[Rfam]
RNA sequence: GGGGCUGACCUGGAUUUGACAGCAACUGCGGAUGAUUAGUAUAAGCAUGUCGAGCCAUGUGAUGAGUCUCGUAAAUCUCUGAUCACAAACGAUAAUUGACAACACGUCAUAUAAUCUUGCAGCCUAAUAACCUCAGGUUAUUACGCUUAAUCCACUCCGAAGAACAGUAAGAGGGACAAGUUUCUCGCCAGUUCUCCCGUCUCAUGAGCGCUGGACCCCGAGAAAUCAACAAUUUGAGAAUAGCAUGUAACCGGCUUCUGUUUGCAUGUGAAAUUUAACGAAGAUAAGUUAUGGUAAGGGUGUUUGUGUCCGUUCCAUAAUCGAAAACCCAAUUACAAACUAAACAUGUAGAAGGCUGAUUGUUUCAUUGUUUGGACGAGGGUUCGAACCCCUCCAGCUCCACAG
Numbered sequence: 001g002g003g004g005c006u007g008a009c010c011u012g013g014a015u016u017u018g019a020c021a022g023c024a025a026c027u028g029c030g031g032a033u034g035a036u037u038a039g040u041a042u043a044a045g046c047a048u049g050u051c052g053a054g055c056c057a058u059g060u061g062a063u064g065a066g067u068c069u070c071g072u073a074a075a076u077c078u079c080u081g082a083u084c085a086c087a088a089a090c091g092a093u094a095a096u097u098g099a100c101a102a103c104a105c106g107u108c109a110u111a112u113a114a115u116c117u118u119g120c121a122g123c124c125u126a127a128u129a130a131c132c133u134c135a136g137g138u139u140a141u142u143a144c145g146c147u148u149a150a151u152c153c154a155c156u157c158c159g160a161a162g163a164a165c166a167g168u169a170a171g172a173g174g175g176a177c178a179a180g181u182u183u184c185u186c187g188c189c190a191g192u193u194c195u196c197c198c199g200u201c202u203c204a205u206g207a208g209c210g211c212u213g214g215a216c217c218c219c220g221a222g223a224a225a226u227c228a229a230c231a232a233u234u235u236g237a238g239a240a241u242a243g244c245a246u247g248u249a250a251c252c253g254g255c256u257u258c259u260g261u262u263u264g265c266a267u268g269u270g271a272a273a274u275u276u277a278a279c280g281a282a283g284a285u286a287a288g289u290u291a292u293g294g295u296a297a298g299g300g301u302g303u304u305u306g307u308g309u310c311c312g313u314u315c316c317a318u319a320a321u322c323g324a325a326a327a328c329c330c331a332a333u334u335a336c337a338a339a340c341u342a343a344a345c346a347u348g349u350a351g352a353a354g355g356c357u358g359a360u361u362g363u364u365u366c367a368u369u370g371u372u373u374g375g376a377c378g379a380g381g382g383u384u385c386g387a388a389c390c391c392c393u394c395c396a397g398c399u400c401c402a403c404a405g
Stems, first nucleotide, its partner, number of pairs: 001401007020374003025369001027367002032363009042353001046348005051071004058087006181225006188214004194208003200240001202238001243269008253285001255283004288321007296313001298311003302340007378394005
Dot-bracket structure: (((((((............(((..(.((...(((((((((.(...((((([[[[...((((((....]]]]..........)))))).............................................................................................((((((.((((..(((...[.[...)))..)))).....))))))............].]..((((((((..[.[[[[...))))))))..........]]]].]..(((((((.(.(((.[[[[[[[))).).)))))))............]]]]]]]...)))))....).)))))))))..)).)..)))...(((((.......))))))))))))....
This 405-nucleotide sequence from Brumimicrobium salinarum belongs to the Rfam family "transfer-messenger RNA". Rfam classes the family as a non-coding RNA gene.